[Rfam]
A member of the RNA family "Small nucleolar RNA SNORD18" from Acanthaster planci, 70 nucleotides long. Rfam links the family to the GO terms RNA processing and nucleolus. The base pairs follow the family's consensus structure, which was predicted with PFOLD. By type it is a C/D-box small nucleolar RNA. Lineage of the source: Eukaryota > Opisthokonta > Asterozoa > Acanthasteridae > Acanthaster. The match comes from Rfam's covariance-model search (44 bits). For this family Rfam cites "Two different snoRNAs are encoded in introns of amphibian and human L1 ribosomal protein genes" (Prislei et al., Nucleic Acids Res, 1993). The family is grouped with related families in Rfam's "SNORD18 clan".

RNA sequence: GGGAUAUGAUGAGAUAAUACUUAGUCCGUGUUGCUGAUGACAUGUGAUUGGCGUUUUAAGCUCUGAUCCC
Numbered sequence: 001g002g003g004a005u006a007u008g009a010u011g012a013g014a015u016a017a018u019a020c021u022u023a024g025u026c027c028g029u030g031u032u033g034c035u036g037a038u039g040a041c042a043u044g045u046g047a048u049u050g051g052c053g054u055u056u057u058a059a060g061c062u063c064u065g066a067u068c069c070c
Stems, first nucleotide, its partner, number of pairs: 001070004